[Rfam]
RNA: U7 small nuclear RNA
RNA sequence: AAGUGUUACAGCUCUUUUAAGAAUUUGUCUAGCAGGCUUUUCAGGUUUUGUCAGAAAACCCUC
Dot-bracket structure: ..................................((.(((((.((.....)).))))).))..